[Rfam]
Nucleotides: 058
Stems, first nucleotide, its partner, number of pairs: 006052007022041008
Number, partner (000 for none) and nucleotide at each position: 001000u002000c003000u004000u005000c006052g007051u008050a009049c010048c011047g012046g013000g014000c015000c016000c017000c018000u019000c020000u021000g022041g023040c024039a025038u026037u027036u028035u029034g030000u031000c032000c033000c034029c035028g036027a037026a038025a039024u040023g041022c042000g043000a044000u045000g046012u047011c048010g049009g050008u051007a052006u053000g054000u055000u056000c057000c058000g